[Rfam]
RNA: Eukaryotic large subunit ribosomal RNA, nucleotides 785 to 1073
Organism: Thelohanellus kitauei
RNA sequence: GAGGCUAACAUAUGCGCGAGUCGAGGAGUGGAGAAACUCUAUGGCGUAACGAAAGUGAAAUGUGAGAUUGUGCGACGUCGAGUCGUGCACGCAUCACAGACCAGUCGGAAGUUUGACUACGAUUGAGUUGGAGCGUAUAUGCUAGAACCCGAUAGAUGGUGACCUAUUCCUGAGCAGAGCGAAUUCAUUGGAAACAAUGAUGGAGGCUCGUAGCGGUUCUGACGUGCAAAUCGAUCGUCAAACUUGGGUAUAGGGGCGAAAGACUUAUCGAACCAUCUAGUAGCUGGUU
Numbered sequence: 001g002a003g004g005c006u007a008a009c010a011u012a013u014g015c016g017c018g019a020g021u022c023g024a025g026g027a028g029u030g031g032a033g034a035a036a037c038u039c040u041a042u043g044g045c046g047u048a049a050c051g052a053a054a055g056u057g058a059a060a061u062g063u064g065a066g067a068u069u070g071u072g073c074g075a076c077g078u079c080g081a082g083u084c085g086u087g088c089a090c091g092c093a094u095c096a097c098a099g100a101c102c103a104g105u106c107g108g109a110a111g112u113u114u115g116a117c118u119a120c121g122a123u124u125g126a127g128u129u130g131g132a133g134c135g136u137a138u139a140u141g142c143u144a145g146a147a148c149c150c151g152a153u154a155g156a157u158g159g160u161g162a163c164c165u166a167u168u169c170c171u172g173a174g175c176a177g178a179g180c181g182a183a184u185u186c187a188u189u190g191g192a193a194a195c196a197a198u199g200a201u202g203g204a205g206g207c208u209c210g211u212a213g214c215g216g217u218u219c220u221g222a223c224g225u226g227c228a229a230a231u232c233g234a235u236c237g238u239c240a241a242a243c244u245u246g247g248g249u250a251u252a253g254g255g256g257c258g259a260a261a262g263a264c265u266u267a268u269c270g271a272a273c274c275a276u277c278u279a280g281u282a283g284c285u286g287g288u289u
Stems, first nucleotide, its partner, number of pairs: 005145003009141009020045003025040005049056002061098005069089006100128002102125006148287002151284001155277006164253004169248006177209004185200006213238004218234002221232002255265002
Dot-bracket structure: ....(((.(((((((((..(((..(((((......)))))..)))...((....))....(((((...((((((.........))))))....))))).((((((((............)))))).))....))))))))).)))..((.(...((((((...((((.((((((..((((....((((((....)))))).....))))...((((.((.((........))))))))....)))))).)))).((.......))......))))))......).))..